[Rfam]
Overview:
The record is a 166-nucleotide RNA sequence from Meloidogyne enterolobii, which matches "U1 spliceosomal RNA" in Rfam. It is annotated as a spliceosomal small nuclear RNA. Gene Ontology terms of the family: mRNA 5'-splice site recognition, U1 snRNP and pre-mRNA 5'-splice site binding. The match comes from Rfam's covariance-model search (132 bits).
RNA sequence: AAACUUACCUGGCUGGGGCGCUCAUGCGAUCACGAAGGCAUGGCGUCUGUGGUGAGACUUCCCCAUUGCACUUAAGGGCGAGGUUGACCCGCAGGGCGGCUCCGAACUGGGGUAGGCCCACAGCUAAAUUUUUGAGUGUGGGGGACAGCGUUCGCGCUUCCCCUUU
Number, nucleotide and partner (000 for none) at each position: 001a000002a000003a000004c000005u000006u000007a000008c000009c000010u000011g000012g124013c123014u122015g121016g048017g047018g046019c045020g044021c043022u000023c042024a041025u040026g039027c038028g000029a000030u000031c000032a000033c000034g000035a000036a000037g000038g027039c026040a025041u024042g023043g021044c020045g019046u018047c017048u016049g092050u091051g090052g089053u000054g088055a000056g085057a084058c083059u000060u081061c080062c000063c077064c076065a000066u000067u000068g000069c000070a000071c000072u000073u000074a000075a000076g064077g063078g000079c000080g061081a060082g000083g058084u057085u056086g000087a000088c054089c052090c051091g050092c049093a000094g119095g118096g117097c115098g113099g000100c000101u110102c109103c000104g000105a000106a000107c000108u000109g102110g101111g000112g000113u098114a000115g097116g000117c096118c095119c094120a000121c015122a014123g013124c012125u000126a000127a000128a000129u000130u000131u000132u000133u000134g000135a000136g000137u000138g000139u000140g165141g164142g163143g162144g161145a000146c000147a158148g157149c156150g155151u000152u000153c000154g000155c150156g149157c148158u147159u000160c000161c144162c143163c142164u141165u140166u000
The base pairs follow the family's consensus structure, which is taken from published work. NCBI's taxonomy places the organism under Eukaryota, Metazoa, Tylenchomorpha, Meloidogyninae, Meloidogyne.